[Rfam]
RNA: Bacterial large subunit ribosomal RNA, nucleotides 598 to 830
Nucleotides: 233
Base pairs, nucleotide, nucleotide: 005090006089007088009087010086011085012084013083014082015081016080017079018078021045022044023043024042027039028038029037049056050055059071060070061069062068093231094230096228100221101220102219103218104217105216109197110196111195112194113193114192115191116190117189118188119187120185122154123153124152125151129146130145131144132143133142134141158182159181160180164177165176166175199209200208201207
Number, partner (000 for none) and nucleotide at each position: 001000g002000a003000g004000u005090u006089g007088c008000u009087c010086c011085u012084c013083a014082c015081u016080a017079g018078c019000a020000a021045g022044a023043u024042u025000a026000a027039g028038a029037c030000u031000u032000u033000a034000a035000g036000g037029g038028u039027c040000g041000u042024a043023g044022u045021c046000g047000a048000a049056g050055c051000g052000a053000a054000a055050g056049c057000g058000a059071g060070u061069c062068u063000g064000a065000a066000u067000a068062g069061g070060g071059c072000g073000a074000a075000u076000u077000a078018g079017u080016u081015a082014g083013u084012g085011g086010g087009g088007g089006c090005a091000g092000a093231c094230g095000c096228g097000a098000a099000a100221c101220u102219u103218g104217g105216u106000g107000a108000u109197c110196u111195a112194c113193c114192c115191a116190u117189g118188g119187c120185c121000a122154g123153g124152u125151u126000g127000a128000a129146g130145c131144g132143a133142a134141g135000g136000u137000a138000a139000c140000a141134c142133u143132u144131c145130g146129u147000g148000g149000a150000g151125g152124a153123c154122c155000g156000a157000a158182c159181c160180a161000g162000u163000u164177c165176a166175u167000g168000u169000u170000g171000a172000a173000a174000a175166a176165u177164g178000u179000u180160u181159g182158g183000a184000u185120g186000a187119g188118c189117u190116g191115u192114g193113g194112g195111u196110g197109g198000g199209g200208g201207u202000g203000a204000a205000a206000g207201g208200c209199c210000a211000a212000u213000c214000a215000a216105a217104c218103u219102g220101a221100g222000a223000g224000a225000u226000a227000g228096c229000u230094c231093g232000u233000a